[Rfam]
RNA sequence: AGAGGUGUAGCUUAGUUGGUUAAAGCGCAAGAUUCCAAAUCUUGAAAUCGAGGGUUCGAGUCCUUUCAUCUCUG
Numbered sequence: 001a002g003a004g005g006u007g008u009a010g011c012u013u014a015g016u017u018g019g020u021u022a023a024a025g026c027g028c029a030a031g032a033u034u035c036c037a038a039a040u041c042u043u044g045a046a047a048u049c050g051a052g053g054g055u056u057c058g059a060g061u062c063c064u065u066u067c068a069u070c071u072c073u074g
Stems, first nucleotide, its partner, number of pairs: 001073007010026004028044005050066005
This 74-nucleotide sequence from Chlamydomonas reinhardtii belongs to the Rfam family "tRNA". The family's RNA type in Rfam is transfer RNA. The base pairs follow the family's consensus structure, which is taken from published work.